Record summary
Rfam assigns this 221-nucleotide RNA sequence from a Rickettsiales bacterium to the family "permuted transfer-messenger RNA". It is one of the family's seed sequences.
[Rfam]
RNA sequence: AGUAAUAAACGCUAUUCGUAAUAGACAUUUUGGACGCGGGGGCGGUACCCGCCGGAUCCACCACUAAAAAAUAUGGGUCCGAAAUAGAUUUGACAGAUGUUCAAAGGAAGAGAACUUUACUCGCGAUAAUGCCUUGCGAUAUGAGGAUUAAAACUACAAAUGCAAACGAUAAUUUUGCGAAUGAUAACUUUGAUGCAACUAACGUGGCUAUGGCUGCCUAG
Dot-bracket structure: (((((.........(((........(((.(((...(((((.......)))))(((((((...............)))))))............)))))).......))).......)))))((((.........))))...................................................................................

The base pairs follow the family's consensus structure, which is taken from published work. Rfam's curators write: Bacterial tmRNA, also known as 10Sa RNA or SsrA, is named for its dual tRNA and mRNA-like properties. Its role is to liberate the mRNA from a stalled ribosome. To accomplish this part of the tmRNA is used as a reading frame that ends in a translation stop signal. Rfam classes the family as a non-coding RNA gene.